[Rfam]
RNA sequence: UCUGUGGAGUGCUAAACCAAACGAAAGUAGCCAAGGCUAAAUCGGGCACGGUGAAGCAAGAA
Dot-bracket structure: (.(((...(((((........(((.....((....))....))))))))......))).)..
RNA: RAGATH-18 RNA